[Rfam]
Shown here is a 57-nucleotide RNA sequence from Mycolicibacterium sp. P9-64, a member of the family "F6 TB sRNA".

RNA sequence: UGGGUAGCUCCGUGUUGCCGUCUGACCCCCCGACCCGACGGCAACACGGGGCACUUA
Numbered sequence: 001u002g003g004g005u006a007g008c009u010c011c012g013u014g015u016u017g018c019c020g021u022c023u024g025a026c027c028c029c030c031c032g033a034c035c036c037g038a039c040g041g042c043a044a045c046a047c048g049g050g051g052c053a054c055u056u057a
Base pairs, nucleotide, nucleotide: 002056003055004054005053007052008051009050010049011048012047013046014045015044016043017042018041019040020039021038022037